The family of this 127-nucleotide sequence from Rhipicephalus microplus is "U5 spliceosomal RNA". Rfam's curators write: U5 RNA is a component of both types of known spliceosome. It scores 78 bits against the family's covariance model. Taxonomically the source falls in Boophilus (Eukaryota, Panarthropoda, Rhipicephalinae, Rhipicephalus).
[Rfam]
RNA sequence: UCGCUCAGGUCUCUCUUCAAUUUCUACGCACUAAUCUUUCGCCUUUUACUAAAGAUUACCGUUGGGAGGGACACUCUAAUGAGCCUAUAGGCCAAUUUUUGGGAGGCCUUACCCAUUUGGGUGAGGC
Numbered sequence: 001u002c003g004c005u006c007a008g009g010u011c012u013c014u015c016u017u018c019a020a021u022u023u024c025u026a027c028g029c030a031c032u033a034a035u036c037u038u039u040c041g042c043c044u045u046u047u048a049c050u051a052a053a054g055a056u057u058a059c060c061g062u063u064g065g066g067a068g069g070g071a072c073a074c075u076c077u078a079a080u081g082a083g084c085c086u087a088u089a090g091g092c093c094a095a096u097u098u099u100u101g102g103g104a105g106g107c108c109u110u111a112c113c114c115a116u117u118u119g120g121g122u123g124a125g126g127c
Stems, first nucleotide, its partner, number of pairs: 003084004009072009019062001032058008103127001107126006